[Rfam]
RNA: Group II catalytic intron D1-D4-1
RNA sequence: UGAGCGUACCGUAAGGUGCGCUGACCGGCGGACAGGAGUCAGCAGAGGGCAUAGUAGGACAGGCGCGUCUGAAGGCC
Number, nucleotide and partner (000 for none) at each position: 001u023002g022003a000004g021005c020006g019007u018008a017009c016010c015011g000012u000013a000014a000015g010016g009017u008018g007019c006020g005021c004022u002023g001024a000025c000026c000027g000028g000029c000030g000031g000032a000033c000034a000035g000036g000037a000038g000039u046040c045041a000042g000043c000044a000045g040046a039047g000048g077049g076050c075051a000052u000053a000054g000055u000056a000057g070058g069059a068060c067061a000062g000063g000064c000065g000066c000067g060068u059069c058070u057071g000072a000073a000074g000075g050076c049077c048